[Rfam]
RNA sequence: CCCACGAACCCACUCACUCACGCAGGGCAGGAGCGGGGGACCCAGGUAAGUCGCCGGUCCGCGCAGCGGAACGGCUCGGGGUGAAGCCGCGUACGGCACACAGCGCCGUAGGCGGCCGGGCACCUCCCGGCCCGAACCCGACAGCUCACCUCGCAGGCGCCGGAGAGGAACAUC
Number, nucleotide and partner (000 for none) at each position: 001c031002c030003c000004a000005c000006g000007a000008a000009c000010c000011c000012a000013c000014u000015c000016a000017c000018u000019c000020a000021c000022g000023c000024a000025g000026g000027g000028c000029a000030g002031g001032a000033g154034c153035g152036g151037g150038g149039g000040a000041c000042c000043c078044a000045g000046g000047u000048a000049a000050g000051u000052c000053g000054c000055c000056g000057g000058u000059c000060c000061g000062c000063g000064c000065a000066g000067c000068g000069g000070a000071a000072c000073g000074g000075c000076u000077c000078g043079g139080g138081g137082u000083g000084a000085a000086g000087c115088c114089g113090c112091g000092u000093a000094c000095g000096g000097c000098a000099c000100a000101c000102a000103g000104c000105g000106c000107c000108g000109u000110a000111g000112g090113c089114g088115g087116c000117c000118g133119g132120g131121c130122a000123c000124c000125u000126c000127c000128c000129g000130g121131c120132c119133c118134g000135a000136a000137c081138c080139c079140g000141a000142c000143a000144g000145c000146u000147c000148a000149c038150c037151u036152c035153g034154c033155a000156g000157g000158c000159g000160c000161c000162g000163g000164a000165g000166a000167g000168g000169a000170a000171c000172a000173u000174c000
c-di-AMP riboswitch aptamer (ydaO/yuaA leader): a 174-nucleotide RNA sequence from Streptomyces afghaniensis. The pairing is the family consensus, mapped onto this sequence. The source organism's lineage runs through Bacteria, Actinomycetota, Actinomycetes, Streptomycetaceae and Streptomyces afghaniensis. It scores 47 bits against the family's covariance model.